[Rfam]
RNA sequence: GGCGGGUCUCCCCGCAUUGCGGGGUGGUGAACCUGGUCAGGUCCGGAAGGAAGCAGCCACAGCCAUUAAACGCAAGUGCCGGGGGUCAGGCUCGCCACC
Numbered sequence: 001g002g003c004g005g006g007u008c009u010c011c012c013c014g015c016a017u018u019g020c021g022g023g024g025u026g027g028u029g030a031a032c033c034u035g036g037u038c039a040g041g042u043c044c045g046g047a048a049g050g051a052a053g054c055a056g057c058c059a060c061a062g063c064c065a066u067u068a069a070a071c072g073c074a075a076g077u078g079c080c081g082g083g084g085g086u087c088a089g090g091c092u093c094g095c096c097a098c099c
Stems, first nucleotide, its partner, number of pairs: 004093005009085006015076001017075005023067006034059004042051003
RNA: Bacterial small signal recognition particle RNA
Organism: Sulfurisoma sediminicola